[Rfam]
RNA sequence: AAAGAAGACCCUGUUGAGCUUGACUCUAGUCCGACUCUGUGAAGAGUCAUGAGAGGUGUAGCAUAAGUGGGAGGCCUUGGCCGACAGUGAAAUACCACUACUUUCAUCGAUUCUUUACUUAUUCGGUAAGACGAGAAUUGAGCCUAUCCGGCUCUUCAUUCUGGUGUUAAGUGCAGCCACUCGGUGGCCGCUCGACUCGCGCCGAAGACAGUGUCAGGCGGGGAGUUUGACUGGGGCGGUACAUCUGUCAAAUCGUAACGCAGGUGUCCUAAGGCUAGCUCAGAGAGGACGGAAACCUCUCGUAGAGCAAAAGGGCAAAAGCUCGCUUGAUCUUGAUUUCCAGUACGAAUACAGACCGCGAAAGCGCGGCCUAUCGAUCCUUUUGAAUUAGAAGGUCUCUAGCUAGAGGUGUCAGAAAAGUUGCCACAGGGAUAACUGGCUUGUGGCAGCCAAGCGUCCAUAGCGACGUUGCUUUUUGAUCCUUCGAUGUCGGCUCUUCCUAUCAUUGCGAAGCAGAAUUCGCCAAGCGUUGGAUUGUUCACCCACCAAUAGGGAACGUGAGCUGGGUUUAGACCGUCGUGAGACAGGUUAGUUUUAC
Numbered sequence: 001a002a003a004g005a006a007g008a009c010c011c012u013g014u015u016g017a018g019c020u021u022g023a024c025u026c027u028a029g030u031c032c033g034a035c036u037c038u039g040u041g042a043a044g045a046g047u048c049a050u051g052a053g054a055g056g057u058g059u060a061g062c063a064u065a066a067g068u069g070g071g072a073g074g075c076c077u078u079g080g081c082c083g084a085c086a087g088u089g090a091a092a093u094a095c096c097a098c099u100a101c102u103u104u105c106a107u108c109g110a111u112u113c114u115u116u117a118c119u120u121a122u123u124c125g126g127u128a129a130g131a132c133g134a135g136a137a138u139u140g141a142g143c144c145u146a147u148c149c150g151g152c153u154c155u156u157c158a159u160u161c162u163g164g165u166g167u168u169a170a171g172u173g174c175a176g177c178c179a180c181u182c183g184g185u186g187g188c189c190g191c192u193c194g195a196c197u198c199g200c201g202c203c204g205a206a207g208a209c210a211g212u213g214u215c216a217g218g219c220g221g222g223g224a225g226u227u228u229g230a231c232u233g234g235g236g237c238g239g240u241a242c243a244u245c246u247g248u249c250a251a252a253u254c255g256u257a258a259c260g261c262a263g264g265u266g267u268c269c270u271a272a273g274g275c276u277a278g279c280u281c282a283g284a285g286a287g288g289a290c291g292g293a294a295a296c297c298u299c300u301c302g303u304a305g306a307g308c309a310a311a312a313g314g315g316c317a318a319a320a321g322c323u324c325g326c327u328u329g330a331u332c333u334u335g336a337u338u339u340c341c342a343g344u345a346c347g348a349a350u351a352c353a354g355a356c357c358g359c360g361a362a363a364g365c366g367c368g369g370c371c372u373a374u375c376g377a378u379c380c381u382u383u384u385g386a387a388u389u390a391g392a393a394g395g396u397c398u399c400u401a402g403c404u405a406g407a408g409g410u411g412u413c414a415g416a417a418a419a420g421u422u423g424c425c426a427c428a429g430g431g432a433u434a435a436c437u438g439g440c441u442u443g444u445g446g447c448a449g450c451c452a453a454g455c456g457u458c459c460a461u462a463g464c465g466a467c468g469u470u471g472c473u474u475u476u477u478g479a480u481c482c483u484u485c486g487a488u489g490u491c492g493g494c495u496c497u498u499c500c501u502a503u504c505a506u507u508g509c510g511a512a513g514c515a516g517a518a519u520u521c522g523c524c525a526a527g528c529g530u531u532g533g534a535u536u537g538u539u540c541a542c543c544c545a546c547c548a549a550u551a552g553g554g555a556a557c558g559u560g561a562g563c564u565g566g567g568u569u570u571a572g573a574c575c576g577u578c579g580u581g582a583g584a585c586a587g588g589u590u591a592g593u594u595u596u597a598c
Stems, first nucleotide, its partner, number of pairs: 002596002010430004015426002017422005023226004030218002033215003039118010049107007066099005073082002122206005132199004140154005171193001173191002229242001230240003243265006268369002274326002277323003280306002283301006307316002331355003336350004357366003380408004385403001388402004439480001441478001443477001445473006454464002491566001492564004496558001497555005504529001508523005531545003535541001572590004576585003
Rfam assigns this 598-nucleotide part of an RNA from Toxocara canis to the family "Eukaryotic large subunit ribosomal RNA". The source organism's lineage runs through Eukaryota, Nematoda, Chromadorea, Ascaridoidea and Toxocara.